[Rfam]
RNA: Small nucleolar RNA R11/Z151
RNA sequence: GGGUAAAUGAUGAUAAAUUAUUAUUAUCUUAGCGGAUUUCAGUGAGGUCAUUGAUCUAUGAUCUGAUUGUUACACACACUGAUACCC
Numbered sequence: 001g002g003g004u005a006a007a008u009g010a011u012g013a014u015a016a017a018u019u020a021u022u023a024u025u026a027u028c029u030u031a032g033c034g035g036a037u038u039u040c041a042g043u044g045a046g047g048u049c050a051u052u053g054a055u056c057u058a059u060g061a062u063c064u065g066a067u068u069g070u071u072a073c074a075c076a077c078a079c080u081g082a083u084a085c086c087c
Stems, first nucleotide, its partner, number of pairs: 001087005